Notes
Shown here is a 133-nucleotide RNA, a member of the family "Small nucleolar RNA SNORA70". Gene Ontology terms of the family: RNA processing and nucleolus. The base pairs follow the family's consensus structure, which was predicted with PFOLD. For this family Rfam cites "Pseudouridine in RNA: what, where, how, and why" (Charette and Gray, IUBMB Life, 2000).

RNA sequence: CUGCAGUCAAUUAAGCCAGCUGUACUCCUUUCCUCACAGGGGCUCGGUGUAAUGGCUGCAAACAACAGCCUCCUUUGUUGUAUACACAGCUUGUUUCUUGUAUGGGUUGCUCUAAAGAACAUAGGAGACAGCC
Dot-bracket structure: .(..(.............((((..((((..........))))..)))).))........................(((........((((((...........)))))).........)))............